A member of the RNA family "Selenocysteine insertion sequence 1" from Kryptolebias marmoratus, 66 nucleotides long.
RNA sequence: GUUGUUUUAUGAUGUUUUGAUUGAAAAGCAUUUUUUGCAGCGAUUAAAAUUGAUGUUGUUUACAAC
Numbered sequence: 001g002u003u004g005u006u007u008u009a010u011g012a013u014g015u016u017u018u019g020a021u022u023g024a025a026a027a028g029c030a031u032u033u034u035u036u037g038c039a040g041c042g043a044u045u046a047a048a049a050u051u052g053a054u055g056u057u058g059u060u061u062a063c064a065a066c
Base pairs, nucleotide, nucleotide: 001066002065003064004063005062014050015049016048017047018046019045020044021043022042023041028038029037030036

About the family: The incorporation of selenocysteine into a protein sequence is directed by an in-frame UGA codon (usually a stop codon) within the coding region of the mRNA. Selenoprotein mRNAs contain a conserved secondary structure in the 3' UTR that is required for the distinction of UGA stop from UGA selenocysteine. The selenocysteine insertion sequence (SECIS) is around 60 nt in length and adopts a hairpin structure which is sufficiently well-defined and conserved to act as a computational screen for selenoprotein genes. NCBI's taxonomy places the organism under Eukaryota, Metazoa, Actinopterygii, Atherinomorphae, Kryptolebias. The literature on the family includes a 1996 paper in RNA by Walczak et al., "A novel RNA structural motif in the selenocysteine insertion element of eukaryotic selenoprotein mRNAs". Pairs were carried over by alignment from the consensus structure, which is taken from published work.